[Rfam]
RNA: S4-Flavobacteria ribosomal protein leader
Organism: Aurantibacter aestuarii
RNA sequence: GGUUGGCGAAGGAUAAGAUUAAGACCUUAAUUCCCAAUC
Dot-bracket structure: ((((((.(((((............))))....)))))))